Record summary:
Rfam assigns this 216-nucleotide part of an RNA from Trichoderma arundinaceum to the family "Ascomycota telomerase RNA". It scores 369 bits against the family's covariance model. A reference for the family is Qi et al. (2013), "The common ancestral core of vertebrate and fungal telomerase RNAs", Nucleic Acids Res. NCBI's taxonomy places the organism under Eukaryota, Opisthokonta, saccharomyceta, Pezizomycotina, Trichoderma. Clan: Telomerase clan.
Nucleotides: 216
Base pairs, nucleotide, nucleotide: 009199010198011197015195016194017193018192
Number, partner (000 for none) and nucleotide at each position: 001000u002000c003000c004000c005000u006000c007000a008000c009199a010198g011197u012000u013000u014000c015195c016194c017193g018192a019000c020000u021000c022000u023000c024000g025000u026000u027000u028000u029000c030000c031000g032000c033000a034000a035000g036000g037000a038000a039000u040000g041000u042000c043000u044000a045000u046000c047000g048000c049000a050000g051000a052000c053000c054000c055000c056000u057000c058000u059000u060000c061000c062000a063000a064000g065000a066000c067000u068000u069000g070000u071000u072000c073000a074000c075000c076000c077000a078000c079000a080000a081000u082000a083000u084000g085000c086000c087000g088000c089000u090000u091000c092000c093000g094000a095000g096000c097000c098000u099000g100000c101000u102000c103000c104000a105000g106000g107000a108000c109000c110000u111000c112000g113000u114000c115000g116000a117000a118000u119000g120000c121000c122000g123000c124000a125000g126000u127000u128000g129000g130000a131000u132000c133000u134000a135000u136000u137000g138000u139000g140000g141000u142000c143000g144000g145000u146000u147000u148000c149000u150000g151000u152000c153000c154000g155000g156000c157000a158000c159000c160000c161000a162000g163000a164000c165000a166000g167000c168000c169000a170000a171000g172000u173000c174000u175000a176000g177000c178000u179000g180000g181000g182000g183000g184000a185000a186000c187000g188000a189000g190000u191000u192018u193017c194016g195015g196000a197011a198010c199009u200000u201000a202000a203000c204000c205000c206000u207000a208000a209000g210000c211000a212000u213000a214000c215000a216000u